The family of this 132-nucleotide sequence from Lynx pardinus is "Small nucleolar RNA SNORA72". Pairs were carried over by alignment from the consensus structure, which was predicted with PFOLD. Its family is annotated with RNA processing and nucleolus in the Gene Ontology. U72 is a member of the H/ACA class of snoRNAs.
RNA sequence: CUGCAAAUAUUUUCGCUGUUCUGAUUUUGCAAUAAUUCUUGCAGGCUAAACAUUUGCUAUAUUAAGACUGUGCAUGUGUCCCCAGACCUAGUUAUUUCCCUAAGUCUGGUUUUAUCAAUGCUGGUGAUAAAC
Numbered sequence: 001c002u003g004c005a006a007a008u009a010u011u012u013u014c015g016c017u018g019u020u021c022u023g024a025u026u027u028u029g030c031a032a033u034a035a036u037u038c039u040u041g042c043a044g045g046c047u048a049a050a051c052a053u054u055u056g057c058u059a060u061a062u063u064a065a066g067a068c069u070g071u072g073c074a075u076g077u078g079u080c081c082c083c084a085g086a087c088c089u090a091g092u093u094a095u096u097u098c099c100c101u102a103a104g105u106c107u108g109g110u111u112u113u114a115u116c117a118a119u120g121c122u123g124g125u126g127a128u129a130a131a132c
Stems, first nucleotide, its partner, number of pairs: 003057003016044004023037004067125004072121002082109006089102003